The family of this 77-nucleotide RNA from Xanthomonas euvesicatoria is "Xanthomonadaceae sRNA Xoo2".
On this family, see Liang et al., BMC Genomics 2011: "Identification and functional characterization of small non-coding RNAs in Xanthomonas oryzae pathovar oryzae".
It is one of the family's seed sequences.
Lineage of the source: Bacteria > Pseudomonadota > Gammaproteobacteria > Lysobacteraceae > Xanthomonas.
It is annotated as a small RNA.
RNA sequence: AGGCGAAGUAACGCCACAGGCUGCAACCGGACGCAGCCACUGAGCGGCGGACUACUCGUCGGGUCCGCCGCUUUUUU
Numbered sequence: 001a002g003g004c005g006a007a008g009u010a011a012c013g014c015c016a017c018a019g020g021c022u023g024c025a026a027c028c029g030g031a032c033g034c035a036g037c038c039a040c041u042g043a044g045c046g047g048c049g050g051a052c053u054a055c056u057c058g059u060c061g062g063g064u065c066c067g068c069c070g071c072u073u074u075u076u077u
Stems, first nucleotide, its partner, number of pairs: 002015004019038006044071010